RNA: Trypanosomatid snoRNA TB9Cs1H2
RNA sequence: AACGGGACAAUCCGAGGUGUACGUGGCUGUCCCCCCGGUGGGAUUCAAUGCCGUGGUUCGACCUUCUGGUAGUUCCGAAGAGCC
Numbered sequence: 001a002a003c004g005g006g007a008c009a010a011u012c013c014g015a016g017g018u019g020u021a022c023g024u025g026g027c028u029g030u031c032c033c034c035c036c037g038g039u040g041g042g043a044u045u046c047a048a049u050g051c052c053g054u055g056g057u058u059c060g061a062c063c064u065u066c067u068g069g070u071a072g073u074u075c076c077g078a079a080g081a082g083c084c
Base pairs, nucleotide, nucleotide: 003077004076005075007073008072015064016063017062